[Rfam]
RNA sequence: GGCUGAUCUGACUGCAGUAGUGUUCGCAACUAAUUGAUCACAACCUGUUAAAAAUUUCUUUGUUUCUUCUCCACUCCCACUGCUUGACUUGACUAGCCUUUA
Numbered sequence: 001g002g003c004u005g006a007u008c009u010g011a012c013u014g015c016a017g018u019a020g021u022g023u024u025c026g027c028a029a030c031u032a033a034u035u036g037a038u039c040a041c042a043a044c045c046u047g048u049u050a051a052a053a054a055u056u057u058c059u060u061u062g063u064u065u066c067u068u069c070u071c072c073a074c075u076c077c078c079a080c081u082g083c084u085u086g087a088c089u090u091g092a093c094u095a096g097c098c099u100u101u102a
Base pairs, nucleotide, nucleotide: 001098002097003096004095005094007092008091010090011089016081017080018079020077022076028064029063030062032060033059
RNA: Y RNA